[Rfam]
RNA: Y RNA
Organism: Saimiri boliviensis
RNA sequence: GGCUGGUCCGAUGGUAGUGGGUUAUCAGAAUUUAUUUACAUUAGUAUCACUAAAGUUGGUGUACAACCCCCACCACUGCUAAAUUUGACUGUGUUUAA
Numbered sequence: 001g002g003c004u005g006g007u008c009c010g011a012u013g014g015u016a017g018u019g020g021g022u023u024a025u026c027a028g029a030a031u032u033u034a035u036u037u038a039c040a041u042u043a044g045u046a047u048c049a050c051u052a053a054a055g056u057u058g059g060u061g062u063a064c065a066a067c068c069c070c071c072a073c074c075a076c077u078g079c080u081a082a083a084u085u086u087g088a089c090u091g092u093g094u095u096u097a098a
Base pairs, nucleotide, nucleotide: 001095002094003093004091005090006089007088008087010086011085015081016077017076018075019074020073026061027060030057